Small nucleolar RNA SNORA15: a 144-nucleotide RNA from Equus asinus. A reference for the family is Huttenhofer et al. (2001), "RNomics: an experimental approach that identifies 201 candidates for novel, small, non-messenger RNAs in mouse", EMBO J. From the family's description: ACA15 is a member of the H/ACA class of snoRNA that guide the sites of modification of uridines to pseudouridines. The base pairs follow the family's consensus structure, which was predicted with RNAfold. The source organism's lineage runs through Eukaryota, Metazoa, Amniota, Mammalia and Equus. It is annotated as an H/ACA-box small nucleolar RNA. A search with the family's covariance model found it, with a score of 95 bits.

[Rfam]
RNA sequence: GCAUGGCUGAAUCUGUGCUCUUUUUAUCAGUAUUUUACACAGCCAGACACCACGCAGUAAAAAGAGCAGUCUUACCUUUAAAGUGGUUAUGAUGGUAUGCUAAGUUUUUUUCAUAGCAUAUCAUUAAUAAAGGGAAAUAAGUAA
Numbered sequence: 001g002c003a004u005g006g007c008u009g010a011a012u013c014u015g016u017g018c019u020c021u022u023u024u025u026a027u028c029a030g031u032a033u034u035u036u037a038c039a040c041a042g043c044c045a046g047a048c049a050c051c052a053c054g055c056a057g058u059a060a061a062a063a064g065a066g067c068a069g070u071c072u073u074a075c076c077u078u079u080a081a082a083g084u085g086g087u088u089a090u091g092a093u094g095g096u097a098u099g100c101u102a103a104g105u106u107u108u109u110u111u112c113a114u115a116g117c118a119u120a121u122c123a124u125u126a127a128u129a130a131a132g133g134g135a136a137a138u139a140a141g142u143a144a
Base pairs, nucleotide, nucleotide: 001055002054004052005051006050013042014041015040016039017038072137073136075133076132077131078130079129080128090126091125092124093123094122095121096120097119098118099117100116101115102114